Shown here is a 54-nucleotide sequence from Loigolactobacillus coryniformis, a member of the family "Ribosomal protein L13 leader".
[Rfam]
RNA sequence: GGUACUGUUUACCCCACGAUAAGCCCCGGAAACUUACUGGUGUUUAAACAGACA
Numbered sequence: 001g002g003u004a005c006u007g008u009u010u011a012c013c014c015c016a017c018g019a020u021a022a023g024c025c026c027c028g029g030a031a032a033c034u035u036a037c038u039g040g041u042g043u044u045u046a047a048a049c050a051g052a053c054a
Stems, first nucleotide, its partner, number of pairs: 006050006017039002020036004

About the family: This family is a putative r-protein leader autoregulatory structure found in B. subtilis and other low-GC Gram-positive bacteria. It is located in the 5' untranslated regions of mRNAs encoding the L13-S9 (rplM-rpsI) ribosomal protein operon.
It scores 52 bits against the family's covariance model.
For this family Rfam cites "Diverse mechanisms for regulating ribosomal protein synthesis in Escherichia coli" (Zengel and Lindahl, Prog Nucleic Acid Res Mol Biol, 1994).